[Rfam]
RNA sequence: UAGACACCCAUCGUGUCUUUUGCUCUGCAGUCAGUAAAUAUUUUGUUGUGAAUGUGUAGCAAAAGACAGAAUGGUGGUCCA
Numbered sequence: 001u002a003g004a005c006a007c008c009c010a011u012c013g014u015g016u017c018u019u020u021u022g023c024u025c026u027g028c029a030g031u032c033a034g035u036a037a038a039u040a041u042u043u044u045g046u047u048g049u050g051a052a053u054g055u056g057u058a059g060c061a062a063a064a065g066a067c068a069g070a071a072u073g074g075u076g077g078u079c080c081a
Stems, first nucleotide, its partner, number of pairs: 003079003008074004014068011026056004031051003035048003